[Rfam]
RNA sequence: GAGGAGGAGAUGGUGAUGUUGAUUACAAGCACAUAUCUUAAAAACAAAUGUGUGGAAGAACUAAGUUCUGAAUUUCCUCCUU
Numbered sequence: 001g002a003g004g005a006g007g008a009g010a011u012g013g014u015g016a017u018g019u020u021g022a023u024u025a026c027a028a029g030c031a032c033a034u035a036u037c038u039u040a041a042a043a044a045c046a047a048a049u050g051u052g053u054g055g056a057a058g059a060a061c062u063a064a065g066u067u068c069u070g071a072a073u074u075u076c077c078u079c080c081u082u
Base pairs, nucleotide, nucleotide: 001082002081003080004079005078006077008075009074010073011072